Rfam assigns this 45-nucleotide RNA sequence from Mycoplana azooxidifex to the family "Guanidine-II riboswitch aptamer (mini-ykkC)". The match comes from Rfam's covariance-model search (38 bits). For this family Rfam cites "Identification of 22 candidate structured RNAs in bacteria using the CMfinder comparative genomics pipeline" (Weinberg et al., Nucleic Acids Res, 2007). NCBI's taxonomy places the organism under Bacteria, Pseudomonadati, Pseudomonadota, Hyphomicrobiales, Mycoplana.
RNA sequence: CGCGCAGGACGACCUGCGCCUUGAAACGUUCCGGGGACGGCCCUG
Numbered sequence: 001c002g003c004g005c006a007g008g009a010c011g012a013c014c015u016g017c018g019c020c021u022u023g024a025a026a027c028g029u030u031c032c033g034g035g036g037a038c039g040g041c042c043c044u045g
Stems, first nucleotide, its partner, number of pairs: 002019007032045005